[Rfam]
RNA sequence: CUAUGAUGUUUUUAUGUCAUGGCGGAAGGAG
Numbered sequence: 001c002u003a004u005g006a007u008g009u010u011u012u013u014a015u016g017u018c019a020u021g022g023c024g025g026a027a028g029g030a031g
Stems, first nucleotide, its partner, number of pairs: 001022005006015003
Description
The family of this 31-nucleotide RNA is "L31-Firmicutes ribosomal protein leader". It is annotated as a cis-regulatory leader. Clan: Ribosomal Protein L31 Leader clan.